[Rfam]
RNA sequence: AAGUAGAGAGAAUAGUUGCUGUGCUAUAUGUCCUUCGACUCUAUAUAUCACAGUGGCUGUUCUUUUUGUAC
Dot-bracket structure: ...((.(((((((..((((((((.((((...............)))).))))))))..))))))).))...
RNA: mir-6 microRNA precursor family
Organism: Drosophila pseudoobscura